Proteobacterial sRNA psRNA2: a 191-nucleotide RNA sequence from Noviherbaspirillum galbum. Rfam classes the family as a small RNA. Taxonomically the source falls in Noviherbaspirillum (Bacteria, Pseudomonadati, Betaproteobacteria, Oxalobacteraceae). It scores 137 bits against the family's covariance model. On this family, see Gvakharia et al., FEMS Microbiol Lett 2010: "Computational prediction and transcriptional analysis of sRNAs in Nitrosomonas europaea".

[Rfam]
RNA sequence: GGGUUACUCCUUGGCGCUUGCGCGCUGGUUUAAUAAAGAUUCGCACCUCUAUCAAACCGGGUAACCCCACCCUUUGGCAAGGUCUUACUGUCAGAUAAAGUCGGAACUACUACACUUCAAUGAUUCGAAACGACUGCAAAAGAGGAUCUUGCUGACUUCCGCCUUGCACAUCGCCAAAGUGGAAAUAGUUG
Dot-bracket structure: (((((((.((...((((....)))).(((((.(((.((........)).))).)))))))))))))).((....((....(.(.((...(((.(((...))).).)).(....(.........))..)))).....))..................(((.((.((((.....)).)).)))))....))..